[Rfam]
RNA sequence: CCGGGUAUUACGCAGACACCCGGUAACACAAGGACGAAAUCGUCCCAAGUACUGC
Numbered sequence: 001c002c003g004g005g006u007a008u009u010a011c012g013c014a015g016a017c018a019c020c021c022g023g024u025a026a027c028a029c030a031a032g033g034a035c036g037a038a039a040u041c042g043u044c045c046c047a048a049g050u051a052c053u054g055c
Stems, first nucleotide, its partner, number of pairs: 001023006012055004032045005

Annotation:
This 55-nucleotide sequence belongs to the Rfam family "chrB-b RNA". The family's consensus secondary structure is taken from published work. Rfam's curators put it in the seed alignment.